[Rfam]
A member of the RNA family "ZMP/ZTP riboswitch aptamer (pfl RNA motif)" from Catenulispora sp., 86 nucleotides long. It scores 66 bits against the family's covariance model.

RNA sequence: CUGUCAGGCCGUGACUGGCGCUGAGGUGGGACACCACCGGGGAGCGGCCUGACACCCGUCUUCUGCCGUGCGCCUGGGCGACUUCA
Numbered sequence: 001c002u003g004u005c006a007g008g009c010c011g012u013g014a015c016u017g018g019c020g021c022u023g024a025g026g027u028g029g030g031a032c033a034c035c036a037c038c039g040g041g042g043a044g045c046g047g048c049c050u051g052a053c054a055c056c057c058g059u060c061u062u063c064u065g066c067c068g069u070g071c072g073c074c075u076g077g078g079c080g081a082c083u084u085c086a
Stems, first nucleotide, its partner, number of pairs: 003053010015041002017074005026037004064080004
Dot-bracket structure: ..((((((((((..(([[[[[....((((....))))..))..))))))))))..........((((..]]]]]..))))......